The record is a 403-nucleotide sequence from Cadophora sp. DSE1049, which matches "Nuclear RNase P" in Rfam.
Ribonuclease P (RNase P) is a ubiquitous endoribonuclease, found in archaea, bacteria and eukarya as well as chloroplasts and mitochondria.
The base pairs follow the family's consensus structure, which is taken from published work.
It is annotated as a ribozyme.
Taxonomically the source falls in Cadophora (Eukaryota, Opisthokonta, Dikarya, saccharomyceta).
Rfam links the family to the GO terms ribonuclease P complex, ribonuclease P activity and tRNA processing.
RNA sequence: GUCCGCCCACGCCUAUCAGAUCUGACUUCCACAUCAGAUCGUACCUUUGCAUAUGAGAAAUUCGGAGUACUCUUCACCAUCACCUUCCCUCCGUUCGCACCUCCUACCUAGGUAGUGUGGUGGUCGCGGAGACAGGUCUGCCCGCGAGGGUUCGGCGCGAUGUUUCGCGUCUGCAAUUGGCAUCAGAAAAGCAGGGCUUGGUCUCUCCUCGUAUACCUUUCCUUUACCUAGGUUUGGGUUUGGGAAUGGGGAGAGUGCUGAGUACCCUAUGGGAGAGCCGUUGCGAAGAUUGUGUGUGCUGAGGCAUGACACUUAAGUGCAAUACGCAGCGUGCCUUUACCUUUCGUCAUCUUCGGUGGCGGAGGGUGGGGUACAAUUCGAUUCCGAUUACUCUGUUGGGGAC
Numbered sequence: 001g002u003c004c005g006c007c008c009a010c011g012c013c014u015a016u017c018a019g020a021u022c023u024g025a026c027u028u029c030c031a032c033a034u035c036a037g038a039u040c041g042u043a044c045c046u047u048u049g050c051a052u053a054u055g056a057g058a059a060a061u062u063c064g065g066a067g068u069a070c071u072c073u074u075c076a077c078c079a080u081c082a083c084c085u086u087c088c089c090u091c092c093g094u095u096c097g098c099a100c101c102u103c104c105u106a107c108c109u110a111g112g113u114a115g116u117g118u119g120g121u122g123g124u125c126g127c128g129g130a131g132a133c134a135g136g137u138c139u140g141c142c143c144g145c146g147a148g149g150g151u152u153c154g155g156c157g158c159g160a161u162g163u164u165u166c167g168c169g170u171c172u173g174c175a176a177u178u179g180g181c182a183u184c185a186g187a188a189a190a191g192c193a194g195g196g197c198u199u200g201g202u203c204u205c206u207c208c209u210c211g212u213a214u215a216c217c218u219u220u221c222c223u224u225u226a227c228c229u230a231g232g233u234u235u236g237g238g239u240u241u242g243g244g245a246a247u248g249g250g251g252a253g254a255g256u257g258c259u260g261a262g263u264a265c266c267c268u269a270u271g272g273g274a275g276a277g278c279c280g281u282u283g284c285g286a287a288g289a290u291u292g293u294g295u296g297u298g299c300u301g302a303g304g305c306a307u308g309a310c311a312c313u314u315a316a317g318u319g320c321a322a323u324a325c326g327c328a329g330c331g332u333g334c335c336u337u338u339a340c341c342u343u344u345c346g347u348c349a350u351c352u353u354c355g356g357u358g359g360c361g362g363a364g365g366g367u368g369g370g371g372u373a374c375a376a377u378u379c380g381a382u383u384c385c386g387a388u389u390a391c392u393c394u395g396u397u398g399g400g401g402a403c
Stems, first nucleotide, its partner, number of pairs: 001403004008395002013329002016326001020054002023051002063386005072288004140151004155170006173284004179279003194268003331374007